[Rfam]
RNA sequence: UCAUUUGUUUACUCACUCAACCUGGGUGUGAUGUUUGUUUUAAUCAUCACAACCUCCUUGAGUGAGCGAAUUCGUGA
Numbered sequence: 001u002c003a004u005u006u007g008u009u010u011a012c013u014c015a016c017u018c019a020a021c022c023u024g025g026g027u028g029u030g031a032u033g034u035u036u037g038u039u040u041u042a043a044u045c046a047u048c049a050c051a052a053c054c055u056c057c058u059u060g061a062g063u064g065a066g067c068g069a070a071u072u073c074g075u076g077a
Base pairs, nucleotide, nucleotide: 008069009068012066013065014064015063016062017061018060019059020058024054025053027051028050029049030048031047032046033045
Dot-bracket structure: .......((..(((((((((...((.(((((((...........))))))).))...))))))))).))........

A member of the RNA family "mir-67 microRNA precursor family" from Pseudolycoriella hygida, 77 nucleotides long.
Pairs were carried over by alignment from the consensus structure, which was predicted with RNAalifold.
Gene Ontology terms of the family: miRNA-mediated post-transcriptional gene silencing and RISC complex.